[Rfam]
RNA sequence: GCCUCCUUUCACGUGCUCUCUCACCGGUCAGAGAGACGAGAGAGCACGCGAAAUGAGGAGA
Numbered sequence: 001g002c003c004u005c006c007u008u009u010c011a012c013g014u015g016c017u018c019u020c021u022c023a024c025c026g027g028u029c030a031g032a033g034a035g036a037c038g039a040g041a042g043a044g045c046a047c048g049c050g051a052a053a054u055g056a057g058g059a060g061a
Stems, first nucleotide, its partner, number of pairs: 002058004007053001010050001012048006019041004
RNA: mir-8364 microRNA precursor family
Organism: Pristionchus pacificus